Notes: A member of the RNA family "Mammalian CPEB3 ribozyme" from Alligator mississippiensis, 79 nucleotides long. Rfam's curators write: The mammalian CPEB3 ribozyme is a self cleaving RNA located in the second intron of the CPEB3 gene which belongs to a family of genes regulating messenger RNA polyadenylation. This ribozyme is highly conserved and found only in mammals. Its family is annotated with RNA nuclease activity in the Gene Ontology. Lineage of the source: Eukaryota > Teleostomi > Dipnotetrapodomorpha > Sauria > Alligator. A search with the family's covariance model found it, with a score of 42 bits.
RNA sequence: UUGGUAGCCCAGAGGUUGAUAAGUUAGAAGCACUUAUGGUGCAGCCCUGUCAGAUUCCAAUGAGUCUGUGAAUUCUGCU
Numbered sequence: 001u002u003g004g005u006a007g008c009c010c011a012g013a014g015g016u017u018g019a020u021a022a023g024u025u026a027g028a029a030g031c032a033c034u035u036a037u038g039g040u041g042c043a044g045c046c047c048u049g050u051c052a053g054a055u056u057c058c059a060a061u062g063a064g065u066c067u068g069u070g071a072a073u074u075c076u077g078c079u
Base pairs, nucleotide, nucleotide: 014046015045016044017043023079025077026076027075028074029073030042031041032040051068052067053066054065055064056063057062